About this RNA:
Shown here is a 56-nucleotide RNA sequence from Puccinia sorghi, a member of the family "Small nucleolar RNA sR51". Pairs were carried over by alignment from the consensus structure, which was predicted with CMfinder. A reference for the family is Omer et al. (2000), "Homologs of small nucleolar RNAs in Archaea", Science. The organism belongs to Puccinia, within Eukaryota.
RNA sequence: GUUGAUCGUGGUCCUCGUUGGUUGUUGAUGGUUGUUGAUGGGCACACUGACUGACG
Number, nucleotide and partner (000 for none) at each position: 001g051002u050003u049004g000005a000006u000007c000008g045009u044010g043011g000012u000013c000014c000015u038016c037017g036018u000019u000020g000021g000022u000023u000024g033025u000026u031027g000028a000029u000030g000031g026032u000033u024034g000035u000036u017037g016038a015039u000040g000041g000042g000043c010044a009045c008046a000047c000048u000049g003050a002051c001052u000053g000054a000055c000056g000